[Rfam]
RNA sequence: AAAAGAUGCCUGGGGAGCUGGAAAAGGCCGGCUGAGAUAUAGACCCGCAAGUCUAUGACCCAUUAACCUGAUCUGGAUAAUGCCAGCGUAGGGACUGCUGCAAAAGGGUUUG
Numbered sequence: 001a002a003a004a005g006a007u008g009c010c011u012g013g014g015g016a017g018c019u020g021g022a023a024a025a026g027g028c029c030g031g032c033u034g035a036g037a038u039a040u041a042g043a044c045c046c047g048c049a050a051g052u053c054u055a056u057g058a059c060c061c062a063u064u065a066a067c068c069u070g071a072u073c074u075g076g077a078u079a080a081u082g083c084c085a086g087c088g089u090a091g092g093g094a095c096u097g098c099u100g101c102a103a104a105a106g107g108g109u110u111u112g
Stems, first nucleotide, its partner, number of pairs: 008098002011062004017032005039056005067092004073086004
Shown here is a 112-nucleotide RNA sequence from Acetonema longum, a member of the family "TPP riboswitch aptamer (THI element)". The base pairs follow the family's consensus structure, which is taken from published work. Lineage of the source: Bacteria > Bacillati > Negativicutes > Acetonema > Acetonema longum. Rfam describes the family as follows. Vitamin B(1) in its active form thiamin pyrophosphate (TPP) is an essential coenzyme that is synthesised by coupling of pyrimidine and thiazole moieties in bacteria.